[Rfam]
RNA sequence: GCCCGUGUAACUCAGUGGUAGAGUACCUCCUUGGUAAGGAGGAAGUCAUGGGUUCAAAUCCCAUCACGGGCU
Numbered sequence: 001g002c003c004c005g006u007g008u009a010a011c012u013c014a015g016u017g018g019u020a021g022a023g024u025a026c027c028u029c030c031u032u033g034g035u036a037a038g039g040a041g042g043a044a045g046u047c048a049u050g051g052g053u054u055c056a057a058a059u060c061c062c063a064u065c066a067c068g069g070g071c072u
Stems, first nucleotide, its partner, number of pairs: 001071007010024004026042005048064005
Shown here is a 72-nucleotide sequence from filamentous cyanobacterium Phorm 6, a member of the family "tRNA". The match comes from Rfam's covariance-model search (75 bits). It is annotated as a transfer RNA. Rfam's curators write: Transfer RNA (tRNA) molecules are approximately 80 nucleotides in length.